This 70-nucleotide RNA sequence from Octodon degus belongs to the Rfam family "Small nucleolar RNA SNORD56". On this family, see Galardi et al., Mol Cell Biol 2002: "Purified box C/D snoRNPs are able to reproduce site-specific 2'-O-methylation of target RNA in vitro". A search with the family's covariance model found it, with a score of 72 bits. Taxonomically the source falls in Octodon (Eukaryota, Craniata, Amniota, Mammalia).
RNA sequence: GAACAGUGAUGGUAACAUUUUUCGUCAACAGAGUUCUCCUAGUGAGUGUUGAUACACUGGGUCUGAGUGA
Numbered sequence: 001g002a003a004c005a006g007u008g009a010u011g012g013u014a015a016c017a018u019u020u021u022u023c024g025u026c027a028a029c030a031g032a033g034u035u036c037u038c039c040u041a042g043u044g045a046g047u048g049u050u051g052a053u054a055c056a057c058u059g060g061g062u063c064u065g066a067g068u069g070a
Stems, first nucleotide, its partner, number of pairs: 003068002008026004